[Rfam]
RNA sequence: CGGUCGGCAGUUCACCCAGGCGUUGCCGUGCGGCCUCGUCCGCAAGCUAAACCUGCCC
Numbered sequence: 001c002g003g004u005c006g007g008c009a010g011u012u013c014a015c016c017c018a019g020g021c022g023u024u025g026c027c028g029u030g031c032g033g034c035c036u037c038g039u040c041c042g043c044a045a046g047c048u049a050a051a052c053c054u055g056c057c058c
Stems, first nucleotide, its partner, number of pairs: 002016003029044004

Rfam assigns this 58-nucleotide sequence from Pseudideonella sakaiensis to the family "COG3860 RNA".
The base pairs follow the family's consensus structure, which is taken from published work.
The family's RNA type in Rfam is cis-regulatory element.